RNA sequence: UUGCGCAAGUGCUAUUUAUCCGAGCAAUCUUCGCAAUCAUCUGCCGCAGCCUGUCCGGUAUCUUUAUCCACAGAAUCACUGCCCGGACAUCAGUCCACGGCGACGCGCCCUAGGCGGGCGGUCGCGGCCAGCCAUCCAACAGGAUCUGCAGGCCCCCGGGCUACACACCUUCCAGAAGACGGUGUGAGGUGAGCCGGCGCCACAAGUGCCGAGCACGGACGACAAUUCCUGAAGGGAGGCCCAGCGGCCUCCCU
Number, nucleotide and partner (000 for none) at each position: 001u000002u011003g010004c009005g000006c000007a000008a000009g004010u003011g002012c000013u000014a000015u000016u000017u000018a000019u000020c000021c000022g000023a000024g000025c000026a000027a000028u000029c000030u000031u000032c000033g000034c000035a000036a000037u000038c000039a000040u000041c000042u000043g055044c000045c053046g052047c000048a000049g000050c000051c000052u046053g045054u000055c043056c000057g000058g000059u000060a000061u000062c000063u000064u000065u000066a000067u000068c000069c000070a000071c000072a000073g000074a000075a000076u192077c191078a190079c189080u188081g161082c160083c159084c158085g096086g095087a094088c093089a000090u000091c000092a000093g088094u087095c086096c085097a000098c000099g000100g125101c124102g123103a122104c121105g000106c000107g000108c117109c116110c000111u000112a000113g000114g000115c000116g109117g108118g000119c000120g000121g104122u103123c102124g101125c100126g154127g153128c152129c151130a000131g000132c000133c000134a145135u144136c143137c142138a000139a000140c000141a000142g137143g136144a135145u134146c000147u000148g000149c000150a000151g129152g128153c127154c126155c000156c000157c000158g084159g083160g082161c081162u000163a000164c186165a185166c184167a000168c182169c181170u000171u179172c178173c000174a000175g000176a000177a000178g172179a171180c000181g169182g168183u000184g166185u165186g164187a000188g080189g079190u078191g077192a076193g214194c213195c211196g210197g209198c208199g207200c206201c000202a000203c000204a000205a000206g200207u199208g198209c197210c196211g195212a000213g194214c193215a000216c000217g000218g000219a000220c000221g000222a000223c000224a000225a000226u000227u000228c000229c000230u000231g000232a000233a254234g253235g252236g251237a000238g249239g248240c247241c246242c000243a000244g000245c000246g241247g240248c239249c238250u000251c236252c235253c234254u233

This 254-nucleotide sequence belongs to the Rfam family "Pseudomonas sRNA P24". The sequence is in the family's curated seed alignment. From the family's description: This small RNA (sRNA) was computationally identified in the genome of the opportunistic pathogen Pseudomonas aeruginosa and its expression verified by Northern blot analysis. P24 is conserved across several Pseudomonas species and in Azotobacter vinelandii. It appears to be consistently located between a hypothetical protein gene and a transcriptional regulator gene (AsnC family) in the genomes of all these species. P24 has a predicted Rho independent terminator at the 3' end but the function of P24 is unknown. The literature on the family includes a 2006 paper in Nucleic Acids Res by Livny et al., "Identification of 17 Pseudomonas aeruginosa sRNAs and prediction of sRNA-encoding genes in 10 diverse pathogens using the bioinformatic tool sRNAPredict2". Rfam classes the family as a non-coding RNA gene.